[Rfam]
RNA sequence: GAAUAUCACUCCAUUCACUACGGAUCGUCGGGCACGUACCUGCCCGUGAAAAGGAAAUAAGA
Numbered sequence: 001g002a003a004u005a006u007c008a009c010u011c012c013a014u015u016c017a018c019u020a021c022g023g024a025u026c027g028u029c030g031g032g033c034a035c036g037u038a039c040c041u042g043c044c045c046g047u048g049a050a051a052a053g054g055a056a057a058u059a060a061g062a
Stems, first nucleotide, its partner, number of pairs: 011053001014050004029046006
RNA: msiK RNA